The record is a 135-nucleotide RNA from Nyctereutes procyonoides, which matches "Small nucleolar RNA SNORA14" in Rfam. It is annotated as an H/ACA-box small nucleolar RNA. A search with the family's covariance model found it, with a score of 145 bits. ACA14 is a member of the H/ACA class of snoRNA that guide the sites of modification of uridines to pseudouridines. Rfam 15.1 lists 848 matches to the family in 633 species.
RNA sequence: CCGCAUUCUUAAACCCUCUUGGUGGCUUCCCAAAACAUGCUUCCAAGAUAUGAGUGAAUGCUAUAGAAAUUGCAGGGGCGUCCAAAGGGCUGCGCUUCCCGUGUGGUUCAGUCUUAUUUCAUACCUGCGACAUCU
Number, nucleotide and partner (000 for none) at each position: 001c000002c000003g061004c060005a059006u058007u000008c054009u053010u052011a051012a000013a000014c000015c000016c000017u048018c047019u046020u045021g044022g043023u000024g041025g040026c039027u000028u000029c000030c000031c000032a000033a000034a000035a000036c000037a000038u000039g026040c025041u024042u000043c022044c021045a020046a019047g018048a017049u000050a000051u011052g010053a009054g008055u000056g000057a000058a006059u005060g004061c003062u000063a000064u000065a135066g134067a133068a000069a000070u130071u129072g128073c127074a126075g125076g124077g000078g000079c000080g000081u000082c000083c000084a000085a000086a115087g114088g113089g112090c111091u110092g109093c000094g107095c106096u000097u000098c103099c000100c000101g000102u000103g098104u000105g000106g095107u094108u000109c092110a091111g090112u089113c088114u087115u086116a000117u000118u000119u000120c000121a000122u000123a000124c076125c075126u074127g073128c072129g071130a070131c000132a000133u067134c066135u065